[Rfam]
RNA sequence: AGAUACCUGACAGGGGCCAUAGAAGGAGUGUUCACGUCGUGGCCCCUGUCAGGUAUCUGUUUACCUGCGAAUCCUUCU
Numbered sequence: 001a002g003a004u005a006c007c008u009g010a011c012a013g014g015g016g017c018c019a020u021a022g023a024a025g026g027a028g029u030g031u032u033c034a035c036g037u038c039g040u041g042g043c044c045c046c047u048g049u050c051a052g053g054u055a056u057c058u059g060u061u062u063a064c065c066u067g068c069g070a071a072u073c074c075u076u077c078u
Base pairs, nucleotide, nucleotide: 013046014045015044016043017042018041021078022077023076024075025074026073027072028040029039030038050067051066052065053064054063055062
This 78-nucleotide RNA sequence from Laticauda laticaudata belongs to the Rfam family "Mammalian CPEB3 ribozyme". A search with the family's covariance model found it, with a score of 71 bits. The source organism's lineage runs through Eukaryota, Metazoa, Chordata, Unidentata and Laticauda. For this family Rfam cites "A genomewide search for ribozymes reveals an HDV-like sequence in the human CPEB3 gene" (Salehi-Ashtiani et al., Science, 2006). Pairs were carried over by alignment from the consensus structure, which is taken from published work.